Notes
The record is a 369-nucleotide RNA sequence from Paraeggerthella hongkongensis, which matches "transfer-messenger RNA" in Rfam. It scores 169 bits against the family's covariance model. Lineage of the source: Bacteria > Bacillati > Coriobacteriia > Eggerthellales > Paraeggerthella. Rfam classes the family as a non-coding RNA gene. On this family, see Williams and Bartel, RNA 1996: "Phylogenetic analysis of tmRNA secondary structure". Pairs were carried over by alignment from the consensus structure, which is taken from published work. Clan: tRNA clan.
RNA sequence: GGGGGCGACUGGUUUCGACAUGGUACGUUUGAAAUGAGGAGCAGGUCGUGGUCUCCUCGCCACGUUAAACAGGGGUACCGUCAAUUUAAUUGGCAAGAACAACACUCAGAGCGCUCCGGCGCUCGCCAUGGCUGCUUAAUCGCGCCUGGCUGUCGGCCUUGGGAUUUCCCCGACUCUCGGUCCGGCAUCAACUAAGGGGAAUGCGCUUGAGCACGUAGCCGGUAUGGCUCAAGCAAAGAUCGAACCGGCUAGGUCGGGCUACGUUUGUCGAUGGACCGUGCCCGUCCGAAUCCCGACCAUCGACUAAGCUUGUAGAGCCUCAUGGAUUAUGUAGUAUGGACCGGAGUUCGAUUCUCCGCGCCUCCACCA
Number, nucleotide and partner (000 for none) at each position: 001g365002g364003g363004g362005g361006c360007g359008a000009c000010u000011g000012g000013u000014u000015u000016c000017g000018a000019c338020a337021u336022g335023g000024u333025a332026c331027g330028u329029u000030u000031g000032a000033a000034a323035u322036g321037a320038g319039g318040a000041g000042c312043a311044g310045g309046u308047c064048g063049u062050g061051g060052u077053c000054u075055c074056c073057u072058c000059g000060c051061c050062a049063c048064g047065u000066u000067a000068a000069a000070c000071a000072g057073g056074g055075g054076u000077a052078c000079c000080g000081u000082c000083a000084a000085u000086u000087u000088a000089a000090u000091u000092g000093g000094c000095a000096a000097g000098a000099a000100c000101a000102a000103c000104a000105c000106u000107c000108a000109g000110a000111g000112c000113g000114c000115u000116c000117c000118g000119g000120c000121g000122c000123u000124c000125g000126c000127c148128a000129u000130g147131g146132c000133u144134g143135c142136u000137u000138a000139a000140u000141c000142g135143c134144g133145c000146c131147u130148g127149g000150c000151u187152g186153u185154c184155g183156g182157c000158c180159u179160u000161g000162g177163g176164a175165u000166u000167u201168c000169c199170c198171c197172g000173a000174c000175u164176c163177u162178c000179g159180g158181u000182c156183c155184g154185g153186c152187a151188u000189c000190a000191a000192c000193u000194a000195a000196g000197g171198g170199g169200a000201a167202u000203g000204c000205g234206c233207u232208u231209g230210a229211g228212c227213a000214c000215g000216u000217a250218g249219c248220c247221g246222g245223u000224a000225u000226g000227g212228c211229u210230c209231a208232a207233g206234c205235a000236a000237a000238g000239a000240u000241c000242g000243a000244a000245c222246c221247g220248g219249c218250u217251a000252g287253g286254u000255c284256g283257g282258g281259c280260u000261a000262c000263g276264u275265u274266u000267g304268u303269c302270g301271a300272u299273g298274g265275a264276c263277c000278g000279u000280g259281c258282c257283c256284g255285u000286c253287c252288g000289a000290a000291u000292c000293c000294c000295g000296a000297c000298c273299a272300u271301c270302g269303a268304c267305u000306a000307a000308g046309c045310u044311u043312g042313u000314a000315g000316a000317g000318c039319c038320u037321c036322a035323u034324g000325g000326a000327u000328u000329a028330u027331g026332u025333a024334g000335u022336a021337u020338g019339g000340a000341c000342c358343g357344g356345a355346g354347u000348u000349c000350g000351a000352u000353u000354c346355u345356c344357c343358g342359c007360g006361c005362c004363u003364c002365c001366a000367c000368c000369a000